[Rfam]
RNA sequence: GCCUGGUACGCCUGUUAUUUUGACUCAUACCUUAUAUAUUUGUACAGGUGAGCAAAGUUUCAGGUGUGUUAGUCU
Numbered sequence: 001g002c003c004u005g006g007u008a009c010g011c012c013u014g015u016u017a018u019u020u021u022g023a024c025u026c027a028u029a030c031c032u033u034a035u036a037u038a039u040u041u042g043u044a045c046a047g048g049u050g051a052g053c054a055a056a057g058u059u060u061c062a063g064g065u066g067u068g069u070u071a072g073u074c075u
Base pairs, nucleotide, nucleotide: 003072004071005070006069007068009066010065011064012063013062014061017058018057019056020055021054024052025051026050027049030048031047032046
This 75-nucleotide RNA from Magallana gigas belongs to the Rfam family "mir-87 microRNA precursor family". Gene Ontology terms of the family: RISC complex and miRNA-mediated post-transcriptional gene silencing. The family's consensus secondary structure was predicted with RNAalifold. The family has 44 seed sequences and 420 matches in Rfam 15.1. The organism belongs to Magallana, within Eukaryota.